Source information
This 87-nucleotide sequence from Clarias magur belongs to the Rfam family "mir-204 microRNA precursor family". NCBI's taxonomy places the organism under Eukaryota, Vertebrata, Actinopterygii, Osteoglossocephalai, Clarias.

Nucleotides: 087
Stems, first nucleotide, its partner, number of pairs: 017069006024062002028058004034053004
Number, partner (000 for none) and nucleotide at each position: 001000c002000u003000g004000u005000g006000a007000c008000c009000u010000g011000u012000g013000g014000g015000u016000u017069u018068c019067c020066c021065u022064u023000u024062g025061u026000c027000a028058u029057c030056c031055u032000a033000u034053g035052c036051c037050u038000g039000g040000g041000a042000u043000u044000g045000g046000a047000a048000u049000a050037a051036g052035g053034c054000a055031g056030g057029g058028a059000c060000a061025g062024c063000a064022a065021a066020g067019g068018g069017a070000u071000g072000c073000u074000c075000a076000g077000c078000u079000g080000u081000c082000a083000u084000c085000a086000c087000u